[Rfam]
RNA sequence: GAUCACAAUGAUGACUUGCAAAAUUCAAGCUCAACAGACUGGAUUACAAGCUUUUUCUUGGAGAAGUUUGUAUGUCGACAAUGACGCUAUACUGAGUGAUC
Numbered sequence: 001g002a003u004c005a006c007a008a009u010g011a012u013g014a015c016u017u018g019c020a021a022a023a024u025u026c027a028a029g030c031u032c033a034a035c036a037g038a039c040u041g042g043a044u045u046a047c048a049a050g051c052u053u054u055u056u057c058u059u060g061g062a063g064a065a066g067u068u069u070g071u072a073u074g075u076c077g078a079c080a081a082u083g084a085c086g087c088u089a090u091a092c093u094g095a096g097u098g099a100u101c
Stems, first nucleotide, its partner, number of pairs: 001101006